[Rfam]
RNA: HDV ribozyme from F. prausnitzii
Organism: Argiope bruennichi
RNA sequence: GGGGAACAAAAGUAGCCCACCUUCACGUGGUGUUCCCUGGGCAACGGUGCAGUUCUUUGGAACUGCAUCGGCUAAAAGGCUACU
Number, nucleotide and partner (000 for none) at each position: 001g038002g037003g036004g035005a034006a033007c032008a000009a000010a000011a000012g000013u000014a000015g000016c000017c000018c000019a031020c030021c029022u000023u000024c000025a000026c000027g000028u000029g021030g020031u019032g007033u006034u005035c004036c003037c002038u001039g000040g000041g000042c000043a000044a000045c070046g069047g068048u067049g066050c065051a064052g063053u062054u061055c060056u000057u000058u000059g000060g055061a054062a053063c052064u051065g050066c049067a048068u047069c046070g045071g000072c000073u000074a000075a000076a000077a000078g000079g000080c000081u000082a000083c000084u000